This 87-nucleotide RNA sequence from Apis mellifera belongs to the Rfam family "mir-932 microRNA precursor family".
Pairs were carried over by alignment from the consensus structure, which was predicted with RNAalifold.

[Rfam]
RNA sequence: UGCCUCUUCAAUUCCGUAGUGCAUUGCAGAUGAUUGUUCGAAUUGACGAGAAAGAACCUGCAAGCACCGCGGGAGUGAGGUGGCCUC
Numbered sequence: 001u002g003c004c005u006c007u008u009c010a011a012u013u014c015c016g017u018a019g020u021g022c023a024u025u026g027c028a029g030a031u032g033a034u035u036g037u038u039c040g041a042a043u044u045g046a047c048g049a050g051a052a053a054g055a056a057c058c059u060g061c062a063a064g065c066a067c068c069g070c071g072g073g074a075g076u077g078a079g080g081u082g083g084c085c086u087c
Stems, first nucleotide, its partner, number of pairs: 006080005013073005020066003024063005
Source information
Rfam's curators put it in the seed alignment. Its family is annotated with RISC complex and miRNA-mediated post-transcriptional gene silencing in the Gene Ontology. The family has 14 seed sequences and 136 matches in Rfam 15.1. The source organism's lineage runs through Eukaryota, Hexapoda, Endopterygota, Aculeata and Apis.